RNA: mir-216 microRNA precursor family
RNA sequence: UGACUGCAUAAUCUCUGCAGGCAACUGUGAUCGUGAUGUUGGAUCUCACAUUCACCUGGAGAGAUUGUACAGACA
Numbered sequence: 001u002g003a004c005u006g007c008a009u010a011a012u013c014u015c016u017g018c019a020g021g022c023a024a025c026u027g028u029g030a031u032c033g034u035g036a037u038g039u040u041g042g043a044u045c046u047c048a049c050a051u052u053c054a055c056c057u058g059g060a061g062a063g064a065u066u067g068u069a070c071a072g073a074c075a
Base pairs, nucleotide, nucleotide: 004072005071006070009067010066011065012064013063014062015061016060020057021056024052026050027049028048029047030046